[Rfam]
RNA sequence: UUUGCACAGGCAAGUCCUGCACAACCAGCUCCUGUGAAUCCUCCAGGGUGGGAACGCAGCAAAGGUAAACGGUUGUAGCGGUGUGAUGCAGGUAGCUUGCCUUUUU
Numbered sequence: 001u002u003u004g005c006a007c008a009g010g011c012a013a014g015u016c017c018u019g020c021a022c023a024a025c026c027a028g029c030u031c032c033u034g035u036g037a038a039u040c041c042u043c044c045a046g047g048g049u050g051g052g053a054a055c056g057c058a059g060c061a062a063a064g065g066u067a068a069a070c071g072g073u074u075g076u077a078g079c080g081g082u083g084u085g086a087u088g089c090a091g092g093u094a095g096c097u098u099g100c101c102u103u104u105u106u
Stems, first nucleotide, its partner, number of pairs: 008102008017091005022085002024082002